RNA sequence: UCGUUGCUGUGAUGAACUAUGAAAAGGAUUUUCGCAUGUCAGACUUCAGAGAUACGUAAAGUGUCAAUGAGAAGAUAUUUCAUACUUCUGAGCAAUUU
Numbered sequence: 001u002c003g004u005u006g007c008u009g010u011g012a013u014g015a016a017c018u019a020u021g022a023a024a025a026g027g028a029u030u031u032u033c034g035c036a037u038g039u040c041a042g043a044c045u046u047c048a049g050a051g052a053u054a055c056g057u058a059a060a061g062u063g064u065c066a067a068u069g070a071g072a073a074g075a076u077a078u079u080u081c082a083u084a085c086u087u088c089u090g091a092g093c094a095a096u097u098u
Stems, first nucleotide, its partner, number of pairs: 003096005051065004
This 98-nucleotide sequence from Ananas comosus belongs to the Rfam family "Small nucleolar RNA R64/Z200 family".
The family has 14 seed sequences and 748 matches in Rfam 15.1.
The base pairs follow the family's consensus structure, which was predicted with PFOLD.
A search with the family's covariance model found it, with a score of 80 bits.